RNA sequence: UUUGGAUCAAUGAUGAUUAGUUUAAUUACUGCGUUAUCUUUCUAGAAUUUUCAAUUUAUAUGGGAUUGAAGAAGAUUUUUCUAACUGAGAUCCAGU
Numbered sequence: 001u002u003u004g005g006a007u008c009a010a011u012g013a014u015g016a017u018u019a020g021u022u023u024a025a026u027u028a029c030u031g032c033g034u035u036a037u038c039u040u041u042c043u044a045g046a047a048u049u050u051u052c053a054a055u056u057u058a059u060a061u062g063g064g065a066u067u068g069a070a071g072a073a074g075a076u077u078u079u080u081c082u083a084a085c086u087g088a089g090a091u092c093c094a095g096u
Stems, first nucleotide, its partner, number of pairs: 002095006
RNA: Small nucleolar RNA snoR27
Organism: Capsicum baccatum